[Rfam]
The family of this 49-nucleotide sequence from Ruegeria sp. TM1040 is "SAM/SAH riboswitch aptamer".
Taxonomically the source falls in Ruegeria (Bacteria, Pseudomonadati, Pseudomonadota, Roseobacteraceae).

RNA sequence: AUGCCGCCACAACGGCUUCCUGGCGUGGCGGAUCUCAUCCAAUGGAGCA
Number, nucleotide and partner (000 for none) at each position: 001a000002u000003g000004c031005c030006g029007c028008c027009a026010c025011a000012a000013c022014g021015g048016c047017u046018u000019c045020c044021u014022g013023g000024c000025g010026u009027g008028g007029c006030g005031g004032a000033u000034c000035u000036c000037a000038u000039c000040c000041a000042a000043u000044g020045g019046a017047g016048c015049a000